[Rfam]
RNA sequence: GCUGGAGGACCAAGAAGGCGGAGUCUGGUGAAGCAAGACUCUGCUGAUACAGUCCUCCUAGAGAACGGGGUGGGCGAGAGCAGCCCUCGCUGGAGGACAUGCCGCGGGGCUGACUGCGCGACCCGACACGC
Numbered sequence: 001g002c003u004g005g006a007g008g009a010c011c012a013a014g015a016a017g018g019c020g021g022a023g024u025c026u027g028g029u030g031a032a033g034c035a036a037g038a039c040u041c042u043g044c045u046g047a048u049a050c051a052g053u054c055c056u057c058c059u060a061g062a063g064a065a066c067g068g069g070g071u072g073g074g075c076g077a078g079a080g081c082a083g084c085c086c087u088c089g090c091u092g093g094a095g096g097a098c099a100u101g102c103c104g105c106g107g108g109g110c111u112g113a114c115u116g117c118g119c120g121a122c123c124c125g126a127c128a129c130g131c
Stems, first nucleotide, its partner, number of pairs: 002061002004058006017045003021041006068124004079115002081112007091104003

About this RNA
Small Cajal body specific RNA 4: a 131-nucleotide RNA from Crocuta crocuta. The family is grouped with related families in Rfam's "SCARNA4 clan". A reference for the family is Darzacq et al. (2002), "Cajal body-specific small nuclear RNAs: a novel class of 2'-O-methylation and pseudouridylation guide RNAs", EMBO J. From the family's description: scaRNAs are a specific class of small nuclear RNAs which localise to the Cajal bodies and guide the modification of RNA polymerase II transcribed spliceosomal RNAs U1, U2, U4, U5 and U12. Gene Ontology terms of the family: Cajal body, RNA processing and nucleolus. The match comes from Rfam's covariance-model search (124 bits).